[Rfam]
RNA sequence: UCGGCAUAAUAGGAAUGAGGUGGAGGCUUAACCGACAUCUCAGCUGACGCUUGCCAAAAGCAUUGUGAAAUACUAAGGUCGCUUAAUGCUGUUUUGUAUGCAUUGCGCAUCACCCGUAUUUUCGACAUUU
Numbered sequence: 001u002c003g004g005c006a007u008a009a010u011a012g013g014a015a016u017g018a019g020g021u022g023g024a025g026g027c028u029u030a031a032c033c034g035a036c037a038u039c040u041c042a043g044c045u046g047a048c049g050c051u052u053g054c055c056a057a058a059a060g061c062a063u064u065g066u067g068a069a070a071u072a073c074u075a076a077g078g079u080c081g082c083u084u085a086a087u088g089c090u091g092u093u094u095u096g097u098a099u100g101c102a103u104u105g106c107g108c109a110u111c112a113c114c115c116g117u118a119u120u121u122u123c124g125a126c127a128u129u130u
Stems, first nucleotide, its partner, number of pairs: 003055004012045002016042007025033002067122007077114003081108002084105005090100003

The family of this 130-nucleotide RNA sequence from Panagrellus redivivus is "Nematode snoRNA ceN39". A search with the family's covariance model found it, with a score of 37 bits. The family's consensus secondary structure was predicted with RNAalifold. The organism belongs to Panagrellus, within Eukaryota.